[Rfam]
RNA: Group I catalytic intron
Organism: Ustilaginoidea virens
RNA sequence: GUGUAGCUCUAUAAAGGUAAAAAAUUUAGUAAAGUGUAAGAAACUCUACUCGGCCUAAGCAAAAGUGAACCUUUUGCUAAACAUCAUCAAAUUGCGGAAACCCCUUAAAGCUAUUUUAACUAAAUGUGUUAAGAAACUAAUACAUGGCUCAGGUAAUGACUCGAGGUAUAGUAAAAUCAAAAUAGAUGCACGAAAGGAAAUAGGCAAUCCGCAGCCAAGCACCGACUAUAGGUAAUUCAGUAAGGUGUGCAGUUCAUCGACUAAACGAUGGUGGGUGUUAAAAUUUGUAGAUUUUAAUGCUUAAGAUAUAGUCAGACCCUACUUGAAAAAGUACA
Numbered sequence: 001g002u003g004u005a006g007c008u009c010u011a012u013a014a015a016g017g018u019a020a021a022a023a024a025u026u027u028a029g030u031a032a033a034g035u036g037u038a039a040g041a042a043a044c045u046c047u048a049c050u051c052g053g054c055c056u057a058a059g060c061a062a063a064a065g066u067g068a069a070c071c072u073u074u075u076g077c078u079a080a081a082c083a084u085c086a087u088c089a090a091a092u093u094g095c096g097g098a099a100a101c102c103c104c105u106u107a108a109a110g111c112u113a114u115u116u117u118a119a120c121u122a123a124a125u126g127u128g129u130u131a132a133g134a135a136a137c138u139a140a141u142a143c144a145u146g147g148c149u150c151a152g153g154u155a156a157u158g159a160c161u162c163g164a165g166g167u168a169u170a171g172u173a174a175a176a177u178c179a180a181a182a183u184a185g186a187u188g189c190a191c192g193a194a195a196g197g198a199a200a201u202a203g204g205c206a207a208u209c210c211g212c213a214g215c216c217a218a219g220c221a222c223c224g225a226c227u228a229u230a231g232g233u234a235a236u237u238c239a240g241u242a243a244g245g246u247g248u249g250c251a252g253u254u255c256a257u258c259g260a261c262u263a264a265a266c267g268a269u270g271g272u273g274g275g276u277g278u279u280a281a282a283a284u285u286u287g288u289a290g291a292u293u294u295u296a297a298u299g300c301u302u303a304a305g306a307u308a309u310a311g312u313c314a315g316a317c318c319c320u321a322c323u324u325g326a327a328a329a330a331g332u333a334c335a
Stems, first nucleotide, its partner, number of pairs: 012024001082273005088267001093213006103204003214253002219248004225241003257314001259313005275300009320333005